[Rfam]
RNA sequence: AGCGUUUUUCGCCGCGGCGGAGCUCGACCGCAGACUCGGACAGUGAUCGACUACGUGCGUCAGCACGCGGGUCGUUUCGGGGUCGAGCCGAUCUUGACGGUGCUCGCCGAGCAUGGCAUCAAGGUCGCCCCG
Numbered sequence: 001a002g003c004g005u006u007u008u009u010c011g012c013c014g015c016g017g018c019g020g021a022g023c024u025c026g027a028c029c030g031c032a033g034a035c036u037c038g039g040a041c042a043g044u045g046a047u048c049g050a051c052u053a054c055g056u057g058c059g060u061c062a063g064c065a066c067g068c069g070g071g072u073c074g075u076u077u078c079g080g081g082g083u084c085g086a087g088c089c090g091a092u093c094u095u096g097a098c099g100g101u102g103c104u105c106g107c108c109g110a111g112c113a114u115g116g117c118a119u120c121a122a123g124g125u126c127g128c129c130c131c132g
Base pairs, nucleotide, nucleotide: 017031018030019029020028078132079131080130081129082128089127090126092124093123094122095121096120097119

Rfam assigns this 132-nucleotide RNA from Xylanimonas cellulosilytica to the family "ALIL pseudoknot". By type it is a cis-regulatory element. The source organism's lineage runs through Bacteria, Bacillati, Micrococcales, Promicromonosporaceae and Xylanimonas cellulosilytica. Its family is annotated with positive regulation of translational frameshifting in the Gene Ontology. A search with the family's covariance model found it, with a score of 63 bits. The literature on the family includes a 2008 paper in J Biol Chem by Mazauric et al., "Apical loop-internal loop RNA pseudoknots: a new type of stimulator of -1 translational frameshifting in bacteria". The family has 26 seed sequences and 2,146 matches in Rfam 15.1. The family's consensus secondary structure is taken from published work.